[Rfam]
RNA sequence: GCAUCGGGAAGCGUGCCUGGUGGCACGGCCGGGCUUCAAACCCGGUGGGUGACGUCACGCGUCGCCGGGUGGCUUCGACUCCCACUCCCGUGC
Numbered sequence: 001g002c003a004u005c006g007g008g009a010a011g012c013g014u015g016c017c018u019g020g021u022g023g024c025a026c027g028g029c030c031g032g033g034c035u036u037c038a039a040a041c042c043c044g045g046u047g048g049g050u051g052a053c054g055u056c057a058c059g060c061g062u063c064g065c066c067g068g069g070u071g072g073c074u075u076c077g078a079c080u081c082c083c084a085c086u087c088c089c090g091u092g093c
Base pairs, nucleotide, nucleotide: 001093002092003091005090006089007088008087009086012027013026014025015024016023017022028046029045030044031043032042033041048066049065050064051063052062069085070084071083072082